Shown here is a 94-nucleotide sequence from Treponema pedis, a member of the family "TD-2 RNA". Taxonomically the source falls in Treponema pedis (Bacteria, Pseudomonadati, Treponemataceae, Treponema). A reference for the family is Weinberg et al. (2007), "Identification of 22 candidate structured RNAs in bacteria using the CMfinder comparative genomics pipeline", Nucleic Acids Res.
RNA sequence: CCAGCCAUGGACGGCGGCGGUUUUGGCCUUGAGAGUUUUGCGUAAGCAAAACUCUGAGAUGAAAAAGGUACAAGGAUGUACUUUUUCAUCGGCC
Numbered sequence: 001c002c003a004g005c006c007a008u009g010g011a012c013g014g015c016g017g018c019g020g021u022u023u024u025g026g027c028c029u030u031g032a033g034a035g036u037u038u039u040g041c042g043u044a045a046g047c048a049a050a051a052c053u054c055u056g057a058g059a060u061g062a063a064a065a066a067g068g069u070a071c072a073a074g075g076a077u078g079u080a081c082u083u084u085u086u087c088a089u090c091g092g093c094c
Stems, first nucleotide, its partner, number of pairs: 002017001004015003032055010058090009068081004
It is annotated as a small RNA.